This 174-nucleotide RNA from Fictibacillus arsenicus belongs to the Rfam family "Group II catalytic intron D1-D4-3".

RNA sequence: UGUGAGGCGACUCGCAUAGCUGAAGGAAGUCGGCGGCAAACUUCCGCCCCAAGGAACACGAACUUCAUACGAGGCUAGGUGACAUUGGAUGAGACUGCAUUACAAGUCAAAGUCCUUACUGCCAAAGGUGUCACAAAGUAAAUGAAGUGGGGACAUGGAAGGAAAGUCUGUAUC
Dot-bracket structure: ((((((....))))))............(..(...((...(((((((((((...........((((((.....(((..((((((..((((..((((........))))...)))).............))))))..)))..)))))))))))...))))))....))...)..)
NCBI's taxonomy places the organism under Bacteria, Bacillati, Bacilli, Caryophanales, Fictibacillus. From the family's description: Group II introns are found in rRNA, tRNA and mRNA of organelles in fungi, plants and protists, and also in mRNA in bacteria. Rfam links the family to the GO term Group II intron splicing.